[Rfam]
RNA: Small nucleolar RNA R12
Organism: Protea cynaroides
RNA sequence: AUGCUGAAUGAUGAAUAAAUCAGACGGAUUCCCAAUGAUUUUUACAUGAUCUUACAACCAGCUACUUCUGACACAU
Numbered sequence: 001a002u003g004c005u006g007a008a009u010g011a012u013g014a015a016u017a018a019a020u021c022a023g024a025c026g027g028a029u030u031c032c033c034a035a036u037g038a039u040u041u042u043u044a045c046a047u048g049a050u051c052u053u054a055c056a057a058c059c060a061g062c063u064a065c066u067u068c069u070g071a072c073a074c075a076u
Stems, first nucleotide, its partner, number of pairs: 001076003005073002
Dot-bracket structure: (((.((.................................................................)))))